[Rfam]
RNA sequence: UAAUGAGGUUAGCAUGGUACUGUGUACAGAAAUCAAUCAUGGGUACUAAUGUCUGCCUGCUCUGAUGCUUCUGGCUCUGAUUUUGUGGGCCUGGAAACGUACCUACAUUG
Dot-bracket structure: ...........((((......))))...............((((......(((.(((...............)))...))).......))))..................
Numbered sequence: 001u002a003a004u005g006a007g008g009u010u011a012g013c014a015u016g017g018u019a020c021u022g023u024g025u026a027c028a029g030a031a032a033u034c035a036a037u038c039a040u041g042g043g044u045a046c047u048a049a050u051g052u053c054u055g056c057c058u059g060c061u062c063u064g065a066u067g068c069u070u071c072u073g074g075c076u077c078u079g080a081u082u083u084u085g086u087g088g089g090c091c092u093g094g095a096a097a098c099g100u101a102c103c104u105a106c107a108u109u110g
Stems, first nucleotide, its partner, number of pairs: 012025004041092004051081003055075003

Small nucleolar RNA snoR100: a 110-nucleotide RNA from Papaver nudicaule. On this family, see Marker et al., Curr Biol 2002: "Experimental RNomics: identification of 140 candidates for small non-messenger RNAs in the plant Arabidopsis thaliana". A search with the family's covariance model found it, with a score of 72 bits. Pairs were carried over by alignment from the consensus structure, which was predicted with WAR. Gene Ontology terms of the family: RNA processing and nucleolus. The organism belongs to Papaver, within Eukaryota.